[Rfam]
RNA sequence: AUUUGGUCAUAUGACUGACGGAAGUGGAAUUACCACAUGAAGUAUGACUAUUAAAAAGCCGACCGUCUGGGCAAAAAGC
Numbered sequence: 001a002u003u004u005g006g007u008c009a010u011a012u013g014a015c016u017g018a019c020g021g022a023a024g025u026g027g028a029a030u031u032a033c034c035a036c037a038u039g040a041a042g043u044a045u046g047a048c049u050a051u052u053a054a055a056a057a058g059c060c061g062a063c064c065g066u067c068u069g070g071g072c073a074a075a076a077a078g079c
Base pairs, nucleotide, nucleotide: 004050005049006048007047008046009045010044011043012042015039017067018066019065020064021063024036025035026034027033058072059071060070

A member of the RNA family "ZMP/ZTP riboswitch aptamer (pfl RNA motif)" from Clostridium uliginosum, 79 nucleotides long.
The base pairs follow the family's consensus structure, which is taken from published work.
NCBI's taxonomy places the organism under Bacteria, Clostridia, Eubacteriales, Clostridiaceae, Clostridium.
The match comes from Rfam's covariance-model search (60 bits).